[Rfam]
RNA sequence: AAAAAAGCAGGGGCCUGUUGCCGAUCUUUGAACAGGUCUCUCGUAAACGUCAGGGAAAUCAGUUUUUCAUUGUUUUUGGGUGAACCUUUUGACCAUUUAAUGGCUAAGGGUUCAGUAAAUGAUGUGACAUUA
Numbered sequence: 001a002a003a004a005a006a007g008c009a010g011g012g013g014c015c016u017g018u019u020g021c022c023g024a025u026c027u028u029u030g031a032a033c034a035g036g037u038c039u040c041u042c043g044u045a046a047a048c049g050u051c052a053g054g055g056a057a058a059u060c061a062g063u064u065u066u067u068c069a070u071u072g073u074u075u076u077u078g079g080g081u082g083a084a085c086c087u088u089u090u091g092a093c094c095a096u097u098u099a100a101u102g103g104c105u106a107a108g109g110g111u112u113c114a115g116u117a118a119a120u121g122a123u124g125u126g127a128c129a130u131u132a
Base pairs, nucleotide, nucleotide: 005050007048011039012038014036015035016034017033018032019031066126068124069123070122071121072120073119074118081114082113083112084111085110086109087108
RNA: Small nucleolar RNA snoR74